The family of this 119-nucleotide sequence from Oryctolagus cuniculus is "Small nucleolar RNA SNORA32". Rfam 15.1 lists 615 matches to the family in 234 species. The source organism's lineage runs through Eukaryota, Euteleostomi, Theria, Glires and Oryctolagus. Rfam's curators write: ACA32 is a member of the H/ACA class of snoRNA that guide the sites of modification of uridines to pseudouridines. Rfam classes the family as an H/ACA-box small nucleolar RNA.
[Rfam]
RNA sequence: UGGUCAUUACCAAUGCUUUUAGAAUACAGUUUUUCACUUGCUGUGACAUGACCAUAAAAAAAUUUCCCACCAGGUUUUCUCUGCUACCGUGCUAGCCAUCAAAUCUACUGGGAACAUUU
Numbered sequence: 001u002g003g004u005c006a007u008u009a010c011c012a013a014u015g016c017u018u019u020u021a022g023a024a025u026a027c028a029g030u031u032u033u034u035c036a037c038u039u040g041c042u043g044u045g046a047c048a049u050g051a052c053c054a055u056a057a058a059a060a061a062a063u064u065u066c067c068c069a070c071c072a073g074g075u076u077u078u079c080u081c082u083g084c085u086a087c088c089g090u091g092c093u094a095g096c097c098a099u100c101a102a103a104u105c106u107a108c109u110g111g112g113a114a115c116a117u118u119u
Stems, first nucleotide, its partner, number of pairs: 003052005011045002027040003066112004073105004083096002